Notes
Rfam assigns this 78-nucleotide RNA from Leptidea sinapis to the family "mir-306 microRNA precursor family".
[Rfam]
RNA sequence: CGGGCGUUGGGUCAGGUACUAGGUGACUCUGAGUGAGUGCAGUUCUCAGAGACUUCUGGUGCCUCAGCCCGGCGCCCG
Numbered sequence: 001c002g003g004g005c006g007u008u009g010g011g012u013c014a015g016g017u018a019c020u021a022g023g024u025g026a027c028u029c030u031g032a033g034u035g036a037g038u039g040c041a042g043u044u045c046u047c048a049g050a051g052a053c054u055u056c057u058g059g060u061g062c063c064u065c066a067g068c069c070c071g072g073c074g075c076c077c078g
Stems, first nucleotide, its partner, number of pairs: 001078005008071002010068001014064006022056002025053001027051007035043001
On this family, see Ruby et al., Genome Res 2007: "Evolution, biogenesis, expression, and target predictions of a substantially expanded set of Drosophila microRNAs". The source organism's lineage runs through Eukaryota, Ecdysozoa, Pterygota, Obtectomera and Leptidea.